This 63-nucleotide RNA sequence from Myripristis murdjan belongs to the Rfam family "Selenocysteine insertion sequence 1".
Taxonomically the source falls in Myripristis (Eukaryota, Craniata, Teleostomi, Neoteleostei).
The family's consensus secondary structure is taken from published work.
By type it is a cis-regulatory element.
A search with the family's covariance model found it, with a score of 39 bits.
[Rfam]
RNA sequence: GUGUGUUUUAAUGAAGGUCUGUUUCUAAACUCUGUCGAGAGAACAGUUCUGAUGCUGACACAC
Numbered sequence: 001g002u003g004u005g006u007u008u009u010a011a012u013g014a015a016g017g018u019c020u021g022u023u024u025c026u027a028a029a030c031u032c033u034g035u036c037g038a039g040a041g042a043a044c045a046g047u048u049c050u051g052a053u054g055c056u057g058a059c060a061c062a063c
Stems, first nucleotide, its partner, number of pairs: 001063005016049002019046006030039003